[Rfam]
SAH (S-adenosyl-L-homocysteine) riboswitch aptamer: a 109-nucleotide RNA sequence from Pseudomonas sp. v388.
A search with the family's covariance model found it, with a score of 58 bits.
On this family, see Wang et al., Mol Cell 2008: "Riboswitches that sense S-adenosylhomocysteine and activate genes involved in coenzyme recycling".

RNA sequence: CUGUCCGAGGGGCGCUGCAGCAGGUUUCCUGUCAGGCUCGGAUGGGGCGUUGUUUGCCUGGCCACUCUCUGGCCGGCAAGCCUUAAACGCACAACGGCGCCCAUUCGCA
Numbered sequence: 001c002u003g004u005c006c007g008a009g010g011g012g013c014g015c016u017g018c019a020g021c022a023g024g025u026u027u028c029c030u031g032u033c034a035g036g037c038u039c040g041g042a043u044g045g046g047g048c049g050u051u052g053u054u055u056g057c058c059u060g061g062c063c064a065c066u067c068u069c070u071g072g073c074c075g076g077c078a079a080g081c082c083u084u085a086a087a088c089g090c091a092c093a094a095c096g097g098c099g100c101c102c103a104u105u106c107g108c109a
Stems, first nucleotide, its partner, number of pairs: 002044007021031004